[Rfam]
RNA sequence: UUUUAUGCUAGAAUGAAGGUGUAGUUAGUUUAACUACUAGUCUUUUAUAUUCAUGAACAUAUUACUCUUAGGGUGGCUCUUGUAGCCACCUUUUUUUUA
Numbered sequence: 001u002u003u004u005a006u007g008c009u010a011g012a013a014u015g016a017a018g019g020u021g022u023a024g025u026u027a028g029u030u031u032a033a034c035u036a037c038u039a040g041u042c043u044u045u046u047a048u049a050u051u052c053a054u055g056a057a058c059a060u061a062u063u064a065c066u067c068u069u070a071g072g073g074u075g076g077c078u079c080u081u082g083u084a085g086c087c088a089c090c091u092u093u094u095u096u097u098u099a
Base pairs, nucleotide, nucleotide: 003056004055005054006053007052011050013048014047015046016045017044018043019042021037022036023035024034025033026032027031071091072090073089074088075087076086077085078084
The family of this 99-nucleotide RNA from Staphylococcus pettenkoferi is "Staphylococcus sRNA71 small RNA". The sequence is in the family's curated seed alignment. The base pairs follow the family's consensus structure, which was predicted with LocARNA. sRNA71 is a Bacterial small RNA discovered by RNA-seq analysis of the multiresistant Staphylococcus aureus strain ST239 grown in the presence of antibiotics and found throughout the Staphylococcus genus.